[Rfam]
RNA: Bacterial large subunit ribosomal RNA, nucleotides 904 to 1346
Organism: Syntrophobacter fumaroxidans
RNA sequence: CUCCCCGAAAUGCAUUGAGGUGCAGCCUCGAAGUGAGAAUAACGGAGGUAGAGCGCUGGAUGGGCUAGGGGUCUUACCGGAUUACCAAACCCAACCAAACUGCGAAUGCCGUUAUGUCGUCUUCGGGAGUGAGACUGCGGGAGAUAAGUUCCGUGGUCGAGAGGGAAAGAGCCCAGACCGUCAGCUAAGGUCCCGAAAUAGAUGCUAAGUGGGAAAGGAUGUGGGGACGCACAGACAACCAGGAGGUUGGCUUAGAAGCAGCCAUCCUUUAAAGAAAGCGUAACAGCUCACUGGUCUAGUGUGCCUGCGCCGAAAAUGUAACGGGUCUUAAGCAUCUUACCGAAGCUGCGGCUUGAUUCCUUAAGGGAUCAGGGGUAGGGGAGCAUUGCGGCAUCCGUUGAAGGCGUACCGAGAGGAGCGCUGGAGGUCCCGCAAGAGAUUAU
Numbered sequence: 001c002u003c004c005c006c007g008a009a010a011u012g013c014a015u016u017g018a019g020g021u022g023c024a025g026c027c028u029c030g031a032a033g034u035g036a037g038a039a040u041a042a043c044g045g046a047g048g049u050a051g052a053g054c055g056c057u058g059g060a061u062g063g064g065c066u067a068g069g070g071g072u073c074u075u076a077c078c079g080g081a082u083u084a085c086c087a088a089a090c091c092c093a094a095c096c097a098a099a100c101u102g103c104g105a106a107u108g109c110c111g112u113u114a115u116g117u118c119g120u121c122u123u124c125g126g127g128a129g130u131g132a133g134a135c136u137g138c139g140g141g142a143g144a145u146a147a148g149u150u151c152c153g154u155g156g157u158c159g160a161g162a163g164g165g166a167a168a169g170a171g172c173c174c175a176g177a178c179c180g181u182c183a184g185c186u187a188a189g190g191u192c193c194c195g196a197a198a199u200a201g202a203u204g205c206u207a208a209g210u211g212g213g214a215a216a217g218g219a220u221g222u223g224g225g226g227a228c229g230c231a232c233a234g235a236c237a238a239c240c241a242g243g244a245g246g247u248u249g250g251c252u253u254a255g256a257a258g259c260a261g262c263c264a265u266c267c268u269u270u271a272a273a274g275a276a277a278g279c280g281u282a283a284c285a286g287c288u289c290a291c292u293g294g295u296c297u298a299g300u301g302u303g304c305c306u307g308c309g310c311c312g313a314a315a316a317u318g319u320a321a322c323g324g325g326u327c328u329u330a331a332g333c334a335u336c337u338u339a340c341c342g343a344a345g346c347u348g349c350g351g352c353u354u355g356a357u358u359c360c361u362u363a364a365g366g367g368a369u370c371a372g373g374g375g376u377a378g379g380g381g382a383g384c385a386u387u388g389c390g391g392c393a394u395c396c397g398u399u400g401a402a403g404g405c406g407u408a409c410c411g412a413g414a415g416g417a418g419c420g421c422u423g424g425a426g427g428u429c430c431c432g433c434a435a436g437a438g439a440u441u442a443u
Stems, first nucleotide, its partner, number of pairs: 001383006011024005026129001027127007036120001037117001039115007051103001052101002057097003061093004068086002070083005133158010163174003178351004183347003189341003198338001200337006217311002221308005227302004238295005244268003249263003269273001274289001278287002352373008384438001386435006395427002403422005409416002